[Rfam]
RNA sequence: GGCAGCCUCGGUAGAGCGAUCCGAGAGCUGACAGAGCCUGUCUCCUGCGUGAGCGAUCGCGGGAGACACUGUUCUGUGUCACAAACCUGAAAAGAGUUAGUGCUUUUGUUGCGCAGCUCCGUAUCGGGACGAGCUUGCAUUUGCAGACACCGCAUCGCUCGGGAAGAGCAAGCUCUUCUCGCGGUCUCUGUAGCCCUU
Number, nucleotide and partner (000 for none) at each position: 001g000002g000003c030004a029005g028006c027007c025008u024009c023010g022011g021012u000013a000014g000015a000016g000017c000018g000019a000020u000021c011022c010023g009024a008025g007026a000027g006028c005029u004030g003031a077032c076033a075034g074035a073036g072037c071038c000039u068040g067041u066042c065043u064044c063045c062046u061047g060048c059049g058050u000051g000052a000053g000054c000055g000056a000057u000058c049059g048060c047061g046062g045063g044064a043065g042066a041067c040068a039069c000070u000071g037072u036073u035074c034075u033076g032077u031078g000079u000080c000081a000082c000083a000084a000085a000086c000087c000088u000089g000090a000091a000092a000093a000094g000095a000096g000097u000098u000099a000100g000101u000102g000103c000104u000105u000106u000107u000108g000109u000110u000111g000112c000113g000114c000115a000116g000117c000118u000119c000120c000121g000122u000123a000124u000125c000126g000127g000128g000129a000130c000131g000132a000133g000134c000135u000136u000137g000138c000139a000140u000141u000142u000143g191144c190145a189146g188147a187148c000149a185150c184151c183152g182153c181154a000155u000156c000157g000158c000159u000160c000161g180162g179163g178164a177165a176166g175167a174168g173169c000170a000171a000172g000173c168174u167175c166176u165177u164178c163179u162180c161181g153182c152183g151184g150185u149186c000187u147188c146189u145190g144191u143192a000193g000194c000195c000196c000197u000198u000

Cyano-2 RNA: a 198-nucleotide RNA. It is one of the family's seed sequences. The family's consensus secondary structure is taken from published work. The family's RNA type in Rfam is small RNA.